[Rfam]
RNA sequence: AAUAGUUGACCCAUCGGCAGGAGCUGAUUCAAGCAGAUCUGCCAAACGGAUGAGUGGUGCUUACCUUUCACGGGUUGGUGCUGAGCGACUCAUUGCAGUAAAGUAAUAAGAGCU
Numbered sequence: 001a002a003u004a005g006u007u008g009a010c011c012c013a014u015c016g017g018c019a020g021g022a023g024c025u026g027a028u029u030c031a032a033g034c035a036g037a038u039c040u041g042c043c044a045a046a047c048g049g050a051u052g053a054g055u056g057g058u059g060c061u062u063a064c065c066u067u068u069c070a071c072g073g074g075u076u077g078g079u080g081c082u083g084a085g086c087g088a089c090u091c092a093u094u095g096c097a098g099u100a101a102a103g104u105a106a107u108a109a110g111a112g113c114u
Stems, first nucleotide, its partner, number of pairs: 002014002005011001016043006024036003028033001050093006056082002059079003063075004102114002
A member of the RNA family "Group II catalytic intron D1-D4-2" from Portibacter lacus, 114 nucleotides long. Taxonomically the source falls in Portibacter (Bacteria, Pseudomonadati, Bacteroidota, Saprospirales). Group II introns are found in rRNA, tRNA and mRNA of organelles in fungi, plants and protists, and also in mRNA in bacteria.